[Rfam]
The family of this 96-nucleotide RNA sequence from Phoenix dactylifera is "MIR535 microRNA precursor family".
RNA sequence: GAAGCUGAGUGACAACGAGAAGGAGCACGCCAGUACACACUCAUGGCCCCAAGCAUGAUUGCCGACCAGCGUGCUCUCUCUCGUUGUCAACCAAAG
Numbered sequence: 001g002a003a004g005c006u007g008a009g010u011g012a013c014a015a016c017g018a019g020a021a022g023g024a025g026c027a028c029g030c031c032a033g034u035a036c037a038c039a040c041u042c043a044u045g046g047c048c049c050c051a052a053g054c055a056u057g058a059u060u061g062c063c064g065a066c067c068a069g070c071g072u073g074c075u076c077u078c079u080c081u082c083g084u085u086g087u088c089a090a091c092c093a094a095a096g
Stems, first nucleotide, its partner, number of pairs: 010089005016083002020079001023076001025074006033066002
Rfam links the family to the GO terms RISC complex and miRNA-mediated post-transcriptional gene silencing. For this family Rfam cites "Conservation and divergence of microRNAs and their functions in Euphorbiaceous plants" (Zeng et al., Nucleic Acids Res, 2010). Taxonomically the source falls in Phoenix (Eukaryota, Viridiplantae, Liliopsida, Arecales).